RNA sequence: CUCUUAUCAAGAGUUGGCUGAGGGACUGGCCCGAUGACGCCCGGCAACCUAAUGUCUGUUUGACAAGACAUCAAGGUGCUACCUCCUGCAGGGAAACCUGAGAGAUAAGAG
Numbered sequence: 001c002u003c004u005u006a007u008c009a010a011g012a013g014u015u016g017g018c019u020g021a022g023g024g025a026c027u028g029g030c031c032c033g034a035u036g037a038c039g040c041c042c043g044g045c046a047a048c049c050u051a052a053u054g055u056c057u058g059u060u061u062g063a064c065a066a067g068a069c070a071u072c073a074a075g076g077u078g079c080u081a082c083c084u085c086c087u088g089c090a091g092g093g094a095a096a097c098c099u100g101a102g103a104g105a106u107a108a109g110a111g
Stems, first nucleotide, its partner, number of pairs: 001111008013042001016041003022032003026088001028086002043080004048076002052071006084103001089100004
The family of this 111-nucleotide RNA from Brevibacillus laterosporus is "SAM riboswitch aptamer (S box leader)". NCBI's taxonomy places the organism under Bacteria, Bacillota, Bacilli, Brevibacillus, Brevibacillus laterosporus. The literature on the family includes a 1998 paper in Mol Microbiol by Grundy and Henkin, "The S box regulon: a new global transcription termination control system for methionine and cysteine biosynthesis genes in gram-positive bacteria". Rfam's curators write: The SAM riboswitch is found upstream of a number of genes which code for proteins involved in methionine or cysteine biosynthesis in Gram-positive bacteria.